SAM riboswitch aptamer (S box leader): a 92-nucleotide RNA from Arthrobacter sp. NIO-1057. The family's consensus secondary structure is taken from published work. The source organism's lineage runs through Bacteria, Actinomycetota, Actinomycetes, Micrococcales and Arthrobacter. A search with the family's covariance model found it, with a score of 58 bits. About the family: The SAM riboswitch is found upstream of a number of genes which code for proteins involved in methionine or cysteine biosynthesis in Gram-positive bacteria. The SAM riboswitch acts at the level of transcription termination control. The predicted structure consists of a complex stem-loop region followed by a single stem loop terminator region. An alternative and mutually exclusive form involves bases in the 3' segment of helix 1 with those in the 5' region of helix 5 to form a structure termed the anti-terminator form.
RNA sequence: AACCCAUCCAGAGCGGCCGAGAGAUCUGGCUCGAUAACGCCGCAGCAACCACCCGACUUGCGGGACGGUGCUACCGCCAGGACCGAUGGAAA
Numbered sequence: 001a002a003c004c005c006a007u008c009c010a011g012a013g014c015g016g017c018c019g020a021g022a023g024a025u026c027u028g029g030c031u032c033g034a035u036a037a038c039g040c041c042g043c044a045g046c047a048a049c050c051a052c053c054c055g056a057c058u059u060g061c062g063g064g065a066c067g068g069u070g071c072u073a074c075c076g077c078c079a080g081g082a083c084c085g086a087u088g089g090a091a092a
Stems, first nucleotide, its partner, number of pairs: 004089005013043005021032003026080004044072004049068002052063002076084001